Shown here is a 96-nucleotide RNA from Jejuibacter calystegiae, a member of the family "sraA". The source organism's lineage runs through Bacteria, Pseudomonadota, Gammaproteobacteria, Enterobacterales and Jejuibacter. Rfam classes the family as a small RNA.

RNA sequence: AGUUAAGUCAGUAUAUGGGGAUGUUUCCCGGACAUUCAACGGCGAGAAUGCAGGAAAAAAAAAUGGGGGAUAAAAUCCCCCAUUUUGAUGCUAACU
Numbered sequence: 001a002g003u004u005a006a007g008u009c010a011g012u013a014u015a016u017g018g019g020g021a022u023g024u025u026u027c028c029c030g031g032a033c034a035u036u037c038a039a040c041g042g043c044g045a046g047a048a049u050g051c052a053g054g055a056a057a058a059a060a061a062a063a064u065g066g067g068g069g070a071u072a073a074a075a076u077c078c079c080c081c082a083u084u085u086u087g088a089u090g091c092u093a094a095c096u
Stems, first nucleotide, its partner, number of pairs: 008038001010036003016032001019029002061085011